[Rfam]
RNA sequence: AAAUGAGGAGUGGUUAAAAAACUCGCUUAAUGCGAGAAGAGUGUUUCGCUCAGCCUGUUACGACAAAUGAGCACUCUCCUUCUUUUAUCAUUUUAAAUU
Numbered sequence: 001a002a003a004u005g006a007g008g009a010g011u012g013g014u015u016a017a018a019a020a021a022c023u024c025g026c027u028u029a030a031u032g033c034g035a036g037a038a039g040a041g042u043g044u045u046u047c048g049c050u051c052a053g054c055c056u057g058u059u060a061c062g063a064c065a066a067a068u069g070a071g072c073a074c075u076c077u078c079c080u081u082c083u084u085u086u087a088u089c090a091u092u093u094u095a096a097a098u099u
Stems, first nucleotide, its partner, number of pairs: 001098001011090004022036005038077008055069001058066001
Shown here is a 99-nucleotide RNA from Arabidopsis lyrata, a member of the family "Small nucleolar RNA Z279/snoR105/snoR108". Gene Ontology terms of the family: nucleolus and RNA processing. Rfam describes the family as follows. This family includes the plant snoRNAs known as Z279, snoR105 and snoR108. Pairs were carried over by alignment from the consensus structure, which was predicted with PFOLD. Clan: snoU13 clan. The family's RNA type in Rfam is C/D-box small nucleolar RNA.